The family of this 296-nucleotide part of an RNA from Bugula neritina is "Eukaryotic large subunit ribosomal RNA". Its family is annotated with ribosome and structural constituent of ribosome in the Gene Ontology. The match comes from Rfam's covariance-model search (2694 bits).
RNA sequence: GAGUUGAGCACGCUCGCGAGUCGAUGGGCUCGACGAACCCCAAAGGCGCAGCUAAGGCAAAACGGGCGUGAUCCGGCACUGGCGUGUCGGCGCAACGCCGGCCCGCAGCCGACUCGUUGCAAGUGGCUGCGGCGCAAGAGCGGGCGUGCUCAGACCCGAAAGGUGGUGAACUAUGCUUGAGCAGGGCGAAGCCAGAGGAAACUCUGGUGGAGGCUCGCAGCGAUCCUGACGUGCAAAUCGGUCGUCAAACUUGAGCAUAGGGGCGAAAGACUAAUCGAACCGCCUAGUAGCUGGUU
Numbered sequence: 001g002a003g004u005u006g007a008g009c010a011c012g013c014u015c016g017c018g019a020g021u022c023g024a025u026g027g028g029c030u031c032g033a034c035g036a037a038c039c040c041c042a043a044a045g046g047c048g049c050a051g052c053u054a055a056g057g058c059a060a061a062a063c064g065g066g067c068g069u070g071a072u073c074c075g076g077c078a079c080u081g082g083c084g085u086g087u088c089g090g091c092g093c094a095a096c097g098c099c100g101g102c103c104c105g106c107a108g109c110c111g112a113c114u115c116g117u118u119g120c121a122a123g124u125g126g127c128u129g130c131g132g133c134g135c136a137a138g139a140g141c142g143g144g145c146g147u148g149c150u151c152a153g154a155c156c157c158g159a160a161a162g163g164u165g166g167u168g169a170a171c172u173a174u175g176c177u178u179g180a181g182c183a184g185g186g187c188g189a190a191g192c193c194a195g196a197g198g199a200a201a202c203u204c205u206g207g208u209g210g211a212g213g214c215u216c217g218c219a220g221c222g223a224u225c226c227u228g229a230c231g232u233g234c235a236a237a238u239c240g241g242u243c244g245u246c247a248a249a250c251u252u253g254a255g256c257a258u259a260g261g262g263g264c265g266a267a268a269g270a271c272u273a274a275u276c277g278a279a280c281c282g283c284c285u286a287g288u289a290g291c292u293g294g295u296u
Stems, first nucleotide, its partner, number of pairs: 005152013020047003025042004030037001051058002065099005073090005101135002103132006113123002155294002158291001162284006171260011184216004191208007220245004225241002228239002262272002
Dot-bracket structure: ....(((((((((((((..(((..((((.(......).))))..)))...((....))......(((((...(((((........)))))....))))).((((((((....((.......))...)))))).))....)))))))))))))..((.(...((((((...(((((((((((..((((...(((((((....)))))))....))))...((((.((.((........))))))))....))))))))))).((.......))......))))))......).))..